[Rfam]
RNA: permuted transfer-messenger RNA
RNA sequence: GGUCGUAAUCCCUUUAAAAUGAAGGGCGUUCGGACGCGGGUUCGAUUCCCGCCACGUCCACCACAUGCAUCUUAUAGCCAGAACUGAAUCUGGUAAGAGGUAGUCAGCCACAUUGAACCUUUCAGUAGAGCGCUGACCUAAGUCGCAUGUAGUAACCCGCUUUAGGGUGCAAGUGAUGGGCGUGCCAAGGUUUCGACGGGCGAAGAUAGUGGAGAAGGCGACUAGCCAGAGUAGGCUCUAAAACUAAAACCUAAAGUAACUGCCAACGCAAAUACUUUCGAUUACGCACUAGCUGCCUAA
Numbered sequence: 001g002g003u004c005g006u007a008a009u010c011c012c013u014u015u016a017a018a019a020u021g022a023a024g025g026g027c028g029u030u031c032g033g034a035c036g037c038g039g040g041u042u043c044g045a046u047u048c049c050c051g052c053c054a055c056g057u058c059c060a061c062c063a064c065a066u067g068c069a070u071c072u073u074a075u076a077g078c079c080a081g082a083a084c085u086g087a088a089u090c091u092g093g094u095a096a097g098a099g100g101u102a103g104u105c106a107g108c109c110a111c112a113u114u115g116a117a118c119c120u121u122u123c124a125g126u127a128g129a130g131c132g133c134u135g136a137c138c139u140a141a142g143u144c145g146c147a148u149g150u151a152g153u154a155a156c157c158c159g160c161u162u163u164a165g166g167g168u169g170c171a172a173g174u175g176a177u178g179g180g181c182g183u184g185c186c187a188a189g190g191u192u193u194c195g196a197c198g199g200g201c202g203a204a205g206a207u208a209g210u211g212g213a214g215a216a217g218g219c220g221a222c223u224a225g226c227c228a229g230a231g232u233a234g235g236c237u238c239u240a241a242a243a244c245u246a247a248a249a250c251c252u253a254a255a256g257u258a259a260c261u262g263c264c265a266a267c268g269c270a271a272a273u274a275c276u277u278u279c280g281a282u283u284a285c286g287c288a289c290u291a292g293c294u295g296c297c298u299a300a
Stems, first nucleotide, its partner, number of pairs: 001223005014213002017210001027202002030199003036052005053184007224237004